Overview: Shown here is a 215-nucleotide RNA from Atlantibacter hermannii, a member of the family "GcvB RNA". The gcvB gene encodes a small untranslated RNA involved in expression of the dipeptide and oligopeptide transport systems in Escherichia coli. Included several unknown homologues in alignment (Bateman A pers obs). It base-pairs with SorC. This interaction triggers the degradation of GcvB by RNase E, alleviating the GcvB-mediated mRNA repression of other amino acid-related transport and metabolic genes. The family's consensus secondary structure is taken from published work. Gene Ontology terms of the family: regulation of gene expression and mRNA binding. Lineage of the source: Bacteria > Gammaproteobacteria > Enterobacteriaceae > Atlantibacter > Atlantibacter hermannii.

[Rfam]
RNA sequence: ACUUCCUGAGCCGGAACGAAAAGUUGUUAGGAUGGUCGUUGUGAACGGGCGUUCUGAGGGCUUUUGGCUUACGGUUGUGAUGUUGUGUUGUUGUGUUUGCAAUUGGUCUGCAUUUCAGACCUCGGUAGCAAGACUACCCCUUUUCACUUCCUGUACAUUUACCCUGUCUGUCCAUAGUGAUUAAUGUAGCACCGCAAAUUGCGGUGCUUUUUUUU
Dot-bracket structure: ........((((..((....(((((.((((((((...............)))))))).)))))))))))...................................((((((.....))))))..(((((.....)))))................(((((.......................)))))((((((((.....)))))))).......
Numbered sequence: 001a002c003u004u005c006c007u008g009a010g011c012c013g014g015a016a017c018g019a020a021a022a023g024u025u026g027u028u029a030g031g032a033u034g035g036u037c038g039u040u041g042u043g044a045a046c047g048g049g050c051g052u053u054c055u056g057a058g059g060g061c062u063u064u065u066g067g068c069u070u071a072c073g074g075u076u077g078u079g080a081u082g083u084u085g086u087g088u089u090g091u092u093g094u095g096u097u098u099g100c101a102a103u104u105g106g107u108c109u110g111c112a113u114u115u116c117a118g119a120c121c122u123c124g125g126u127a128g129c130a131a132g133a134c135u136a137c138c139c140c141u142u143u144u145c146a147c148u149u150c151c152u153g154u155a156c157a158u159u160u161a162c163c164c165u166g167u168c169u170g171u172c173c174a175u176a177g178u179g180a181u182u183a184a185u186g187u188a189g190c191a192c193c194g195c196a197a198a199u200u201g202c203g204g205u206g207c208u209u210u211u212u213u214u215u
Stems, first nucleotide, its partner, number of pairs: 009069004015065002021063005027057008105121006124138005155187005188208008